This 67-nucleotide RNA from Falsochrobactrum ovis belongs to the Rfam family "S-element". The base pairs follow the family's consensus structure, which is taken from published work. A search with the family's covariance model found it, with a score of 71 bits. The source organism's lineage runs through Bacteria, Alphaproteobacteria, Hyphomicrobiales, Brucellaceae and Falsochrobactrum. Rfam describes the family as follows. This family represents a group of S-elements from p42d and related plasmids. The S-element has multiple functions and is believed to act as a negative regulator of repC transcription, be required for efficient replication and act as a translational enhancer of repC. By type it is a cis-regulatory element.

Nucleotides: 067
Stems, first nucleotide, its partner, number of pairs: 009064005018057003022054006029047001031045005
Number, partner (000 for none) and nucleotide at each position: 001000u002000g003000u004000c005000a006000a007000g008000c009064u010063u011062u012061u013060u014000a015000a016000g017000c018057g019056u020055c021000g022054u023053u024052u025051u026050g027049g028000c029047g030000g031045g032044u033043g034042g035041a036000u037000u038000u039000c040000u041035u042034u043033u044032g045031c046000c047029u048000u049027u050026u051025g052024a053023a054022a055020g056019g057018u058000a059000g060013a061012g062011g063010a064009a065000a066000u067000g